Shown here is a 105-nucleotide RNA from Gottschalkia purinilytica, a member of the family "azaaromatic riboswitch aptamer (yjdF RNA)". A search with the family's covariance model found it, with a score of 70 bits.
RNA sequence: ACGUGCAAAGAUAAAAACACAGUUCUGGUUGGUAGUCCAGACUCAGCAUCUUGUUGUCAGUAAUCUACCUCCUAAGGCUGUCUGUCCAUUUUUUGCUAAGAUAUU
Numbered sequence: 001a002c003g004u005g006c007a008a009a010g011a012u013a014a015a016a017a018c019a020c021a022g023u024u025c026u027g028g029u030u031g032g033u034a035g036u037c038c039a040g041a042c043u044c045a046g047c048a049u050c051u052u053g054u055u056g057u058c059a060g061u062a063a064u065c066u067a068c069c070u071c072c073u074a075a076g077g078c079u080g081u082c083u084g085u086c087c088a089u090u091u092u093u094u095g096c097u098a099a100g101a102u103a104u105u
Stems, first nucleotide, its partner, number of pairs: 005096007022042002025040004044056005068077003